[Rfam]
RNA sequence: ACUACACUUAAGCAGCACGGGGUUAGGGUUACCUAACCCUAAACCCUAACCCCGUGCUGCUUAAGUGUAGU
Numbered sequence: 001a002c003u004a005c006a007c008u009u010a011a012g013c014a015g016c017a018c019g020g021g022g023u024u025a026g027g028g029u030u031a032c033c034u035a036a037c038c039c040u041a042a043a044c045c046c047u048a049a050c051c052c053c054g055u056g057c058u059g060c061u062u063a064a065g066u067g068u069a070g071u
Stems, first nucleotide, its partner, number of pairs: 001071003005067003011061008020051001022050008

Rfam assigns this 71-nucleotide RNA from Eleutherodactylus coqui to the family "mir-16 microRNA precursor family". On this family, see Calin et al., Proc Natl Acad Sci U S A 2002: "Frequent deletions and down-regulation of micro- RNA genes miR15 and miR16 at 13q14 in chronic lymphocytic leukemia". Clan: mir-15 clan. NCBI's taxonomy places the organism under Eukaryota, Tetrapoda, Batrachia, Anura, Eleutherodactylus. Its family is annotated with RISC complex and miRNA-mediated post-transcriptional gene silencing in the Gene Ontology.